RNA sequence: CCGACCGGAUAUUAAAAAAAGCAAAUCUCAUGCAUUAUUCAGCCUUCUGAAUCCCUGGAGUAAUGAGGGCUGCUUUUUCGUUACACCCUUCCCCGGCAGCGCCGGUGGCAGUGUUCAGCCCUUUUUCGGGCAAACUGCUGCCAGUCUGUCCGGGGAGCAGACGGCGCAGCCCGUAGCCAUGCCU
Numbered sequence: 001c002c003g004a005c006c007g008g009a010u011a012u013u014a015a016a017a018a019a020a021g022c023a024a025a026u027c028u029c030a031u032g033c034a035u036u037a038u039u040c041a042g043c044c045u046u047c048u049g050a051a052u053c054c055c056u057g058g059a060g061u062a063a064u065g066a067g068g069g070c071u072g073c074u075u076u077u078u079c080g081u082u083a084c085a086c087c088c089u090u091c092c093c094c095g096g097c098a099g100c101g102c103c104g105g106u107g108g109c110a111g112u113g114u115u116c117a118g119c120c121c122u123u124u125u126u127c128g129g130g131c132a133a134a135c136u137g138c139u140g141c142c143a144g145u146c147u148g149u150c151c152g153g154g155g156a157g158c159a160g161a162c163g164g165c166g167c168a169g170c171c172c173g174u175a176g177c178c179a180u181g182c183c184u
Stems, first nucleotide, its partner, number of pairs: 005058004021033003037052006060084010090156007097148003101145002104142009118131004157182003160178001162176001164174003
Shown here is a 184-nucleotide sequence from Klebsiella pneumoniae, a member of the family "Antisense to pHK01_099". The family's RNA type in Rfam is antisense RNA. The source organism's lineage runs through Bacteria, Pseudomonadati, Pseudomonadota, Klebsiella pneumoniae complex and Klebsiella pneumoniae subsp. pneumoniae. It is one of the family's seed sequences. For this family Rfam cites "The CTX-M-14 plasmid pHK01 encodes novel small RNAs and influences host growth and motility" (Jiang et al., FEMS Microbiol Ecol, 2017). About the family: The pHK01 produces plasmid-encoded small RNAs and mediates expression of host sRNAs.